[Rfam]
RNA sequence: CAACGAUAAAGGCAAAGCUAGUGAAAACUAGUGUCGCAAAGCUAUAGGGGCUAAGGCGAGGGAGACCUGCUAUGCCAGCCAGCUGCCGAA
Numbered sequence: 001c002a003a004c005g006a007u008a009a010a011g012g013c014a015a016a017g018c019u020a021g022u023g024a025a026a027a028c029u030a031g032u033g034u035c036g037c038a039a040a041g042c043u044a045u046a047g048g049g050g051c052u053a054a055g056g057c058g059a060g061g062g063a064g065a066c067c068u069g070c071u072a073u074g075c076c077a078g079c080c081a082g083c084u085g086c087c088g089a090a
Stems, first nucleotide, its partner, number of pairs: 012037002017032006040084004047080002049076003056070003

Rfam assigns this 90-nucleotide RNA from [Anoxybacillus] calidus to the family "c-di-GMP-I riboswitch aptamer". The base pairs follow the family's consensus structure, which is taken from published work.